[Rfam]
RNA sequence: AUAGAGCAACAGCUUCUAUGCAGUUUAUGAAGGCCCCGUUAAUCUUUUCCUUCCGCCAAGAUUGAAGAAGAUUAUCGGGGUUUUUGCUU
Numbered sequence: 001a002u003a004g005a006g007c008a009a010c011a012g013c014u015u016c017u018a019u020g021c022a023g024u025u026u027a028u029g030a031a032g033g034c035c036c037c038g039u040u041a042a043u044c045u046u047u048u049c050c051u052u053c054c055g056c057c058a059a060g061a062u063u064g065a066a067g068a069a070g071a072u073u074a075u076c077g078g079g080g081u082u083u084u085u086g087c088u089u
Stems, first nucleotide, its partner, number of pairs: 001019005027089001029087001031083008040074007